[Rfam]
RNA sequence: UUUUUCCACUAGGGGUGCCGUUAUGGCUGAGACAAGACAUUGCUUGAUCCCUUUGAACCUGAUCUGGGUGAUACCAGCGUAGGAAAGUGGAACGCGACAAGA
Numbered sequence: 001u002u003u004u005u006c007c008a009c010u011a012g013g014g015g016u017g018c019c020g021u022u023a024u025g026g027c028u029g030a031g032a033c034a035a036g037a038c039a040u041u042g043c044u045u046g047a048u049c050c051c052u053u054u055g056a057a058c059c060u061g062a063u064c065u066g067g068g069u070g071a072u073a074c075c076a077g078c079g080u081a082g083g084a085a086a087g088u089g090g091a092a093c094g095c096g097a098c099a100a101g102a
Base pairs, nucleotide, nucleotide: 006090007089008088009087010086011052012051013050014049016046017027018026019025020024034045035044036043058083059082060081061080064077065076066075067074
RNA: TPP riboswitch aptamer (THI element)
Organism: Salipaludibacillus keqinensis